[Rfam]
RNA sequence: AGGCAGCCCCCUUGUGAAUUGUACAAUGGCAUGGGAGGUGUUAUUCUGCUCUUAAAUUAGUUCUUUUGCUCUUCAGACUUGCUGAGAUUGCUUUCUUUAUUCAGUCAUUGAAGCUGGUCUAGUAAAGCUCAAGUACAUU
Numbered sequence: 001a002g003g004c005a006g007c008c009c010c011c012u013u014g015u016g017a018a019u020u021g022u023a024c025a026a027u028g029g030c031a032u033g034g035g036a037g038g039u040g041u042u043a044u045u046c047u048g049c050u051c052u053u054a055a056a057u058u059a060g061u062u063c064u065u066u067u068g069c070u071c072u073u074c075a076g077a078c079u080u081g082c083u084g085a086g087a088u089u090g091c092u093u094u095c096u097u098u099a100u101u102c103a104g105u106c107a108u109u110g111a112a113g114c115u116g117g118u119c120u121a122g123u124a125a126a127g128c129u130c131a132a133g134u135a136c137a138u139u
Base pairs, nucleotide, nucleotide: 002042003041004040005039007038008037009035010034011033013031014030015029017027063133064132065131068128069127070126075120076119077118078117079116081114082113083112086106087105088104089103090102
Annotation
Rfam assigns this 139-nucleotide RNA sequence from Coptis chinensis to the family "Small nucleolar RNA snoR77". Its family is annotated with nucleolus and RNA processing in the Gene Ontology. The organism belongs to Coptis, within Eukaryota. A reference for the family is Marker et al. (2002), "Experimental RNomics: identification of 140 candidates for small non-messenger RNAs in the plant Arabidopsis thaliana", Curr Biol. The family has 5 seed sequences and 649 matches in Rfam 15.1.